c-di-AMP riboswitch aptamer (ydaO/yuaA leader): a 139-nucleotide RNA from Heliorestis acidaminivorans. NCBI's taxonomy places the organism under Bacteria, Bacillati, Bacillota, Clostridia, Heliorestis.

RNA sequence: UAUUAUCCAGCGCUGAGUUUCACCGUUGUGGAAGCGGAGGACCCAAUAUUUUUGGGGUGAAUCCAGUCCUUUGACUGGUAGGGUCUGCUCUUUGACCCGAAUCCGACAGCUAACUUCGCAAGCGCCAUAAAAGGGCAUU
Numbered sequence: 001u002a003u004u005a006u007c008c009a010g011c012g013c014u015g016a017g018u019u020u021c022a023c024c025g026u027u028g029u030g031g032a033a034g035c036g037g038a039g040g041a042c043c044c045a046a047u048a049u050u051u052u053u054g055g056g057g058u059g060a061a062u063c064c065a066g067u068c069c070u071u072u073g074a075c076u077g078g079u080a081g082g083g084u085c086u087g088c089u090c091u092u093u094g095a096c097c098c099g100a101a102u103c104c105g106a107c108a109g110c111u112a113a114c115u116u117c118g119c120a121a122g123c124g125c126c127a128u129a130a131a132a133g134g135g136c137a138u139u
Stems, first nucleotide, its partner, number of pairs: 011124004018033006034119006044054002055104003063078004081098004
Record summary:
This family represents a conserved RNA structure found upstream of the ydaO and yuaA genes in Bacillus subtilis and related genes in other bacteria. The ydaO/yuaA element is thought to act as a genetic 'off' switch for the ydaO and yuaA genes in its native state. It is believed that the element may be triggered during osmotic shock leading to activation of ydaO, a predicted amino acid transporter gene, and members of the yuaA-yubG operon which code for KtrA and KtrB K+ transporters.